[Rfam]
RNA: malK-II RNA
RNA sequence: AUUCCUACUGUUACUGCUCGCACGAUAACUCAUAUAAUGAUGAGCAGUAA
Numbered sequence: 001a002u003u004c005c006u007a008c009u010g011u012u013a014c015u016g017c018u019c020g021c022a023c024g025a026u027a028a029c030u031c032a033u034a035u036a037a038u039g040a041u042g043a044g045c046a047g048u049a050a
Stems, first nucleotide, its partner, number of pairs: 011050008